[Rfam]
RNA: mir-190 microRNA precursor family
Organism: Sitophilus oryzae
RNA sequence: AACGCUGUAAGAUAUGUUUGAUAUUCUUGGUUGUCGUUUUGCAAGCACCCAGGAGUCAAACAUAUUAUUACAGAGUU
Numbered sequence: 001a002a003c004g005c006u007g008u009a010a011g012a013u014a015u016g017u018u019u020g021a022u023a024u025u026c027u028u029g030g031u032u033g034u035c036g037u038u039u040u041g042c043a044a045g046c047a048c049c050c051a052g053g054a055g056u057c058a059a060a061c062a063u064a065u066u067a068u069u070a071c072a073g074a075g076u077u
Base pairs, nucleotide, nucleotide: 005073006072007071008070009069011066012065013064014063015062016061017060018059019058020057021056022055024053025052029050030049032047033046